[Rfam]
Nucleotides: 097
Stems, first nucleotide, its partner, number of pairs: 003090003009084003014080001016078005021072002024070001026068005032062003
Number, partner (000 for none) and nucleotide at each position: 001000a002000u003090c004089a005088c006000c007000u008000g009084g010083g011082a012000a013000u014080c015000u016078u017077g018076u019075u020074a021072a022071a023000c024070a025000u026068g027067c028066a029065g030064a031000u032062u033061c034060u035000g036000u037000c038000u039000c040000a041000g042000u043000a044000g045000g046000u047000c048000c049000a050000g051000g052000g053000u054000u055000g056000c057000c058000u059000g060034a061033g062032a063000u064030u065029c066028u067027g068026c069000a070024u071022u072021u073000c074020u075019a076018g077017c078016a079000u080014g081000u082011u083010c084009c085000u086000g087000g088005g089004u090003g091000a092000u093000a094000u095000u096000g097000a

The family of this 97-nucleotide RNA sequence from Balaenoptera physalus is "mir-544 microRNA precursor family". Its family is annotated with miRNA-mediated post-transcriptional gene silencing and RISC complex in the Gene Ontology. The literature on the family includes a 2010 paper in Genes Dev by Chiang et al., "Mammalian microRNAs: experimental evaluation of novel and previously annotated genes". Taxonomically the source falls in Balaenoptera (Eukaryota, Vertebrata, Laurasiatheria, Artiodactyla).